[Rfam]
RNA sequence: GGCGAUAAACGUUGUGUGGAAUAAGUGUUGCGGACCCGGGGGCAGUGCCCGGCGUCUCCACCAAAUUCUCCGCAAUCCCUUCGGGGAGCGUGGAGCAUGGGGACGAAACAGGCUCGACGCGCACGGUAAAGACGCAGCUUUUGCCCGGCAUUGUACCACCGUCAUCGGGCUAAAUCACAAGUGCCAACGAUAACUCGCAGGUGCUCGCUGUCGCUGCAUAA
Numbered sequence: 001g002g003c004g005a006u007a008a009a010c011g012u013u014g015u016g017u018g019g020a021a022u023a024a025g026u027g028u029u030g031c032g033g034a035c036c037c038g039g040g041g042g043c044a045g046u047g048c049c050c051g052g053c054g055u056c057u058c059c060a061c062c063a064a065a066u067u068c069u070c071c072g073c074a075a076u077c078c079c080u081u082c083g084g085g086g087a088g089c090g091u092g093g094a095g096c097a098u099g100g101g102g103a104c105g106a107a108a109c110a111g112g113c114u115c116g117a118c119g120c121g122c123a124c125g126g127u128a129a130a131g132a133c134g135c136a137g138c139u140u141u142u143g144c145c146c147g148g149c150a151u152u153g154u155a156c157c158a159c160c161g162u163c164a165u166c167g168g169g170c171u172a173a174a175u176c177a178c179a180a181g182u183g184c185c186a187a188c189g190a191u192a193a194c195u196c197g198c199a200g201g202u203g204c205u206c207g208c209u210g211u212c213g214c215u216g217c218a219u220a221a
Stems, first nucleotide, its partner, number of pairs: 001145005014135004026123003030120003036052005053105007146161003
Rfam assigns this 221-nucleotide sequence from Tanticharoenia sakaeratensis to the family "permuted transfer-messenger RNA".
Rfam classes the family as a non-coding RNA gene.
Its family is annotated with RNA catabolic process in the Gene Ontology.
Rfam's curators write: Bacterial tmRNA, also known as 10Sa RNA or SsrA, is named for its dual tRNA and mRNA-like properties.
The base pairs follow the family's consensus structure, which is taken from published work.
The organism belongs to Tanticharoenia sakaeratensis, within Bacteria.